[Rfam]
A member of the RNA family "mir-9242 microRNA precursor family" from Myotis lucifugus, 63 nucleotides long. The family has 2 seed sequences and 940 matches in Rfam 15.1. Its family is annotated with RISC complex and miRNA-mediated post-transcriptional gene silencing in the Gene Ontology.
RNA sequence: GGCCUCCCUCUGUGGGGCAAUCGAUCGUGGAGCCCCCAGAUUGAUUGCCCGCAGAAGGAGGCC
Numbered sequence: 001g002g003c004c005u006c007c008c009u010c011u012g013u014g015g016g017g018c019a020a021u022c023g024a025u026c027g028u029g030g031a032g033c034c035c036c037c038a039g040a041u042u043g044a045u046u047g048c049c050c051g052c053a054g055a056a057g058g059a060g061g062c063c
Stems, first nucleotide, its partner, number of pairs: 001063007009055006016049011029036002

A search with the family's covariance model found it, with a score of 65 bits. The organism belongs to Myotis, within Eukaryota. Pairs were carried over by alignment from the consensus structure, which was predicted with RNAalifold.